[Rfam]
RNA sequence: UGACGACAAAACUCCGGAAUCUCUGUAUUUUCUUGAUGAAUACGUGAACCCUUUUAUCUGAUGACUGCUUUUAAUUGCU
Numbered sequence: 001u002g003a004c005g006a007c008a009a010a011a012c013u014c015c016g017g018a019a020u021c022u023c024u025g026u027a028u029u030u031u032c033u034u035g036a037u038g039a040a041u042a043c044g045u046g047a048a049c050c051c052u053u054u055u056a057u058c059u060g061a062u063g064a065c066u067g068c069u070u071u072u073a074a075u076u077g078c079u
Stems, first nucleotide, its partner, number of pairs: 002079001004077003
The record is a 79-nucleotide sequence from Cyclopterus lumpus, which matches "Small nucleolar RNA MBII-202" in Rfam. It scores 61 bits against the family's covariance model. Gene Ontology terms of the family: nucleolus and RNA processing. Taxonomically the source falls in Cyclopterus (Eukaryota, Deuterostomia, Chordata, Euteleostomi). Pairs were carried over by alignment from the consensus structure, which was predicted with PFOLD. By type it is a C/D-box small nucleolar RNA.